PreQ1 (pre queuosine) riboswitch aptamer: a 44-nucleotide RNA sequence from Halalkalibacter oceani.
Taxonomically the source falls in Halalkalibacter (Bacteria, Bacillati, Bacilli, Bacillaceae).
Gene Ontology term of the family: queuosine biosynthetic process.
A search with the family's covariance model found it, with a score of 43 bits.
The pairing is the family consensus, mapped onto this sequence.

RNA sequence: AAUCAAGAGGUUCGCAAACUCCCUCUAUAAAAAACUAUGCUGAA
Numbered sequence: 001a002a003u004c005a006a007g008a009g010g011u012u013c014g015c016a017a018a019c020u021c022c023c024u025c026u027a028u029a030a031a032a033a034a035c036u037a038u039g040c041u042g043a044a
Base pairs, nucleotide, nucleotide: 006026007025008024009023010022016036
Dot-bracket structure: .....(((((.....[.....))))).........]........
Background: From the family's description: This family is a bacterial riboswitch that binds to the metabolite preQ1, an intermediate in the biosynthesis of the modified nucleoside queuosine from GTP. One example of this riboswitch is located in the leader of the Bacillus subtilis ykvJKLM (queCDEF) operon which encodes four genes necessary for queuosine production.